[Rfam]
RNA: Alphaproteobacterial ar15
Organism: Falsochrobactrum ovis
Nucleotides: 107
Stems, first nucleotide, its partner, number of pairs: 001038005007032003011029004048073007080100008
Number, partner (000 for none) and nucleotide at each position: 001038a002037c003036u004035u005034a006000c007032u008031g009030c010000g011029g012028c013027g014026u015000c016000u017000c018000c019000u020000c021000c022000c023000a024000u025000u026014a027013c028012g029011u030009g031008c032007g033000g034005u035004a036003a037002g038001u039000g040000u041000u042000c043000c044000c045000c046000u047000c048073u049072g050071g051070a052069g053068g054067u055000u056000u057000g058000c059000c060000u061000a062000a063000g064000g065000g066000c067054a068053c069052c070051u071050u072049c073048a074000u075000a076000a077000c078000u079000u080100a081099g082098c083097c084096g085095g086094a087093c088000u089000u090000u091000u092000a093087g094086u095085c096084c097083g098082g099081c100080u101000c102000u103000u104000u105000u106000u107000u